[Rfam]
RNA: Plastid-psbM 3UTR RNA
Organism: Ziziphus jujuba
RNA sequence: GAGAUGAUAGUAUGGUAGAAAGAAGGAUUCAUAUUUUUCUUUCUACCAUACAAUCUAGUAUUGUCAUUGUACGGAAUAAAGUUUAUUAC
Number, nucleotide and partner (000 for none) at each position: 001g000002a000003g000004a000005u000006g055007a054008u053009a000010g051011u050012a049013u048014g047015g046016u045017a044018g043019a042020a041021a040022g039023a038024a037025g036026g035027a034028u033029u000030c000031a000032u000033a028034u027035u026036u025037u024038u023039c022040u021041u020042u019043c018044u017045a016046c015047c014048a013049u012050a011051c010052a000053a008054u007055c006056u000057a000058g000059u000060a000061u000062u000063g000064u000065c000066a000067u000068u000069g000070u000071a000072c000073g000074g000075a000076a000077u000078a000079a000080a000081g000082u000083u000084u000085a000086u000087u000088a000089c000